[Rfam]
RNA: U2 spliceosomal RNA
Organism: Rhizopogon vesiculosus
RNA sequence: UUACCACUCUGGCCUAAUGGCUUAGAUCAAGUGUAGUAUCUGUUCUUAAUAGUUUAACCACUAUUAUGAGAGCACCGCUCUCAUUCUCUGGUUAUCAAAAUUUUGCCGCCCUUUACUCUCUUCGAGCUCUGCUUGCAACUCGAAGGGCGCGAUGACCUUGCUACUGCACUAUUAGCUUGUGUUGUCGGGGGUAC
Numbered sequence: 001u002u003a004c005c006a007c008u009c010u011g012g013c014c015u016a017a018u019g020g021c022u023u024a025g026a027u028c029a030a031g032u033g034u035a036g037u038a039u040c041u042g043u044u045c046u047u048a049a050u051a052g053u054u055u056a057a058c059c060a061c062u063a064u065u066a067u068g069a070g071a072g073c074a075c076c077g078c079u080c081u082c083a084u085u086c087u088c089u090g091g092u093u094a095u096c097a098a099a100a101u102u103u104u105g106c107c108g109c110c111c112u113u114u115a116c117u118c119u120c121u122u123c124g125a126g127c128u129c130u131g132c133u134u135g136c137a138a139c140u141c142g143a144a145g146g147g148c149g150c151g152a153u154g155a156c157c158u159u160g161c162u163a164c165u166g167c168a169c170u171a172u173u174a175g176c177u178u179g180u181g182u183u184g185u186c187g188g189g190g191g192u193a194c
Stems, first nucleotide, its partner, number of pairs: 008026003011022004047066006067083007118147008130137002150187006157179001160176003